Annotation
Rfam assigns this 86-nucleotide RNA from Halanaerobium praevalens to the family "c-di-GMP-I riboswitch aptamer".

[Rfam]
RNA sequence: UAAAAUAAAAAGCAAAACAACCUAAAGGUUGUUACGCAAAAACAUAGGUCUAAAGCUUUUAAGCCAUGACUGUUAUGUCUGCCUCA
Numbered sequence: 001u002a003a004a005a006u007a008a009a010a011a012g013c014a015a016a017a018c019a020a021c022c023u024a025a026a027g028g029u030u031g032u033u034a035c036g037c038a039a040a041a042a043c044a045u046a047g048g049u050c051u052a053a054a055g056c057u058u059u060u061a062a063g064c065c066a067u068g069a070c071u072g073u074u075a076u077g078u079c080u081g082c083c084u085c086a
Stems, first nucleotide, its partner, number of pairs: 012037002017032006040080001042078002045075003048070003055064003
It scores 54 bits against the family's covariance model.